The family of this 127-nucleotide RNA sequence from Paenibacillus sp. KS1 is "SAM riboswitch aptamer (S box leader)". A search with the family's covariance model found it, with a score of 66 bits. Its family is annotated with regulation of gene expression in the Gene Ontology.
[Rfam]
RNA sequence: AUCUUAUCAAGAGUAGGUGGAGGGACAAGCCCGAUGAAGCCCGGCAACCGGCGAUGCGCAGUAUGAAGCGCGACGCACGGUGCUAAUUCUUGCAGGGACGAUGGAAGUCGUUACUGACAGAUGAGAG
Numbered sequence: 001a002u003c004u005u006a007u008c009a010a011g012a013g014u015a016g017g018u019g020g021a022g023g024g025a026c027a028a029g030c031c032c033g034a035u036g037a038a039g040c041c042c043g044g045c046a047a048c049c050g051g052c053g054a055u056g057c058g059c060a061g062u063a064u065g066a067a068g069c070g071c072g073a074c075g076c077a078c079g080g081u082g083c084u085a086a087u088u089c090u091u092g093c094a095g096g097g098a099c100g101a102u103g104g105a106a107g108u109c110g111u112u113a114c115u116g117a118c119a120g121a122u123g124a125g126a127g
Base pairs, nucleotide, nucleotide: 002126003125004124005123006122007121008120013042016041017040018039022032023031024030026092027091028090029089043084044083045082046081048080049079050076052075053074088119093116094115095114097112098111099110100109101108102107